Description: Shown here is a 270-nucleotide RNA sequence from Chara braunii, a member of the family "RNase MRP".
Nucleotides: 270
Stems, first nucleotide, its partner, number of pairs: 003269009014222006022060006034049005066256003070253004086097004098113001100111004115195002118191006129183002137169003224240005
Number, partner (000 for none) and nucleotide at each position: 001000c002000c003269g004268c005267a006266c007265g008264g009263c010262g011261a012000a013000g014222g015221a016220c017219c018218a019217c020000g021000a022060c023059g024058c025057g026056g027055u028000c029000g030000a031000u032000g033000g034049a035048a036047g037046u038045g039000u040000u041000a042000a043000a044000u045038c046037a047036c048035u049034u050000g051000c052000c053000u054000c055027g056026c057025c058024g059023c060022g061000g062000a063000g064000g065000a066256a067255a068254u069000u070253c071252c072251c073250c074000g075000g076000g077000c078000a079000u080000c081000g082000a083000u084000g085000c086097g087096c088095u089094u090000g091000a092000g093000a094089a095088a096087g097086c098113u099000c100111u101110a102109g103108c104000a105000u106000a107000u108103g109102c110101u111100a112000u113098g114000g115195c116194c117000u118191g119190g120189g121188c122187a123186g124000u125000c126000u127000a128000a129183c130182g131000g132000a133000g134000u135000a136000c137169c138168g139167c140000g141000a142000c143000g144000a145000a146000g147000g148000g149000u150000u151000u152000c153000u154000g155000u156000u157000g158000g159000g160000a161000c162000c163000u164000g165000g166000a167139g168138c169137g170000a171000u172000g173000a174000a175000g176000c177000a178000c179000c180000u181000g182130u183129g184000c185000u186123c187122u188121g189120c190119c191118c192000g193000u194116g195115g196000u197000a198000g199000c200000c201000g202000a203000c204000g205000u206000c207000c208000c209000a210000g211000a212000u213000a214000g215000a216000u217019g218018u219017g220016g221015u222014c223000g224240g225239a226238g227237g228236g229000g230000a231000u232000g233000c234000a235000a236228c237227c238226c239225u240224c241000u242000a243000a244000c245000a246000g247000a248000a249000u250073g251072g252071g253070g254068a255067u256066u257000a258000c259000u260000c261011u262010c263009g264008c265007c266006g267005u268004g269003c270000a
Source information: It scores 69 bits against the family's covariance model. It is annotated as a ribozyme. On this family, see Schmitt et al., FASEB J 1993: "Secondary structure of RNase MRP RNA as predicted by phylogenetic comparison". Rfam links the family to the GO terms ribonuclease MRP complex, rRNA processing and ribonuclease MRP activity. Rfam describes the family as follows. RNase MRP is an enzymatically active ribonucleoprotein with two distinct roles in eukaryotes. In mitochondria it plays a direct role in the initiation of mitochondrial DNA replication. In the nucleus it is involved in precursor rRNA processing, where it cleaves the internal transcribed spacer 1 between 18S and 5.8S rRNAs. Its Rfam clan is "RNaseP clan".